[Rfam]
RNA sequence: UUCUUAUCAAGAGAGGCGGAGGGACUGGCCCUUUGAAGCCCGGCAACCAUUCGAAUAGUCGAAACGGUGCCAAAUCCUGCAAGGUAUCAUUCCUUGGGAGAUGAGAG
Numbered sequence: 001u002u003c004u005u006a007u008c009a010a011g012a013g014a015g016g017c018g019g020a021g022g023g024a025c026u027g028g029c030c031c032u033u034u035g036a037a038g039c040c041c042g043g044c045a046a047c048c049a050u051u052c053g054a055a056u057a058g059u060c061g062a063a064a065c066g067g068u069g070c071c072a073a074a075u076c077c078u079g080c081a082a083g084g085u086a087u088c089a090u091u092c093c094u095u096g097g098g099a100g101a102u103g104a105g106a107g
Stems, first nucleotide, its partner, number of pairs: 001107008013041001015040003021031003025079001027077002042071004047067002050063004075099001080096005
RNA: SAM riboswitch aptamer (S box leader)